[Rfam]
RNA sequence: UGUGUGUGGUGAUCAGGCAGUGUAUUGUUAGUUAGCUGUUUGUCAUACACCAGCAACUGACUACACUGCCACAUUAACACAUCA
Dot-bracket structure: ((.(((((.((((..(((((((((..(((((((.......(((...))).....))))))))))))))))..)))).)))))))
The record is an 84-nucleotide sequence from Scopus umbretta, which matches "mir-449 microRNA precursor family" in Rfam. It scores 61 bits against the family's covariance model. The family is grouped with related families in Rfam's "mir-34 clan". The literature on the family includes a 2010 paper in BMC Genomics by Linsen et al., "Small RNA expression and strain specificity in the rat". Taxonomically the source falls in Scopus (Eukaryota, Craniata, Sauropsida, Archosauria).